[Rfam]
RNA sequence: CGCCUAAACCUUAUAGCCUCUAUAAGGCAUGGCACAAAAACCCAUCGAAGAUAUUGAGCUUGUCGUCAGAGCACUCUUCGAUGGGUCAUAUCCCGAAAGGGAUAUGGGUGGUCGCAAGACCAUC
Numbered sequence: 001c002g003c004c005u006a007a008a009c010c011u012u013a014u015a016g017c018c019u020c021u022a023u024a025a026g027g028c029a030u031g032g033c034a035c036a037a038a039a040a041c042c043c044a045u046c047g048a049a050g051a052u053a054u055u056g057a058g059c060u061u062g063u064c065g066u067c068a069g070a071g072c073a074c075u076c077u078u079c080g081a082u083g084g085g086u087c088a089u090a091u092c093c094c095g096a097a098a099g100g101g102a103u104a105u106g107g108g109u110g111g112u113c114g115c116a117a118g119a120c121c122a123u124c
Stems, first nucleotide, its partner, number of pairs: 002033003009027007041085011056074001058072004087106008107124006
Source information:
The family of this 124-nucleotide sequence is "LOOT RNA". The base pairs follow the family's consensus structure, which is taken from published work.